The family of this 106-nucleotide RNA from Prevotella sp. CAG:891 is "Bacteroidales small SRP". NCBI's taxonomy places the organism under Bacteria, Bacteroidia, Bacteroidales, Prevotellaceae, Prevotella. Rfam links the family to the GO terms SRP-dependent cotranslational protein targeting to membrane, signal sequence recognition and signal recognition particle, plasma membrane targeting. By type it is a non-coding RNA gene. The literature on the family includes a 2020 paper in Nat Commun by Ryan et al., "A high-resolution transcriptome map identifies small RNA regulation of metabolism in the gut microbe Bacteroides thetaiotaomicron". The match comes from Rfam's covariance-model search (97 bits).
[Rfam]
RNA sequence: ACUUAAUGGGUAAGUGCUGUACGGUUUGCACCCUUCGAAUCCUCCAGGGCUUGACCGCAGCAAAGGUAGUCGGUGUCGCUACGCGAUACAGUCAGCUUACCCACCC
Numbered sequence: 001a002c003u004u005a006a007u008g009g010g011u012a013a014g015u016g017c018u019g020u021a022c023g024g025u026u027u028g029c030a031c032c033c034u035u036c037g038a039a040u041c042c043u044c045c046a047g048g049g050c051u052u053g054a055c056c057g058c059a060g061c062a063a064a065g066g067u068a069g070u071c072g073g074u075g076u077c078g079c080u081a082c083g084c085g086a087u088a089c090a091g092u093c094a095g096c097u098u099a100c101c102c103a104c105c106c
Stems, first nucleotide, its partner, number of pairs: 008102008017091005022085002024082002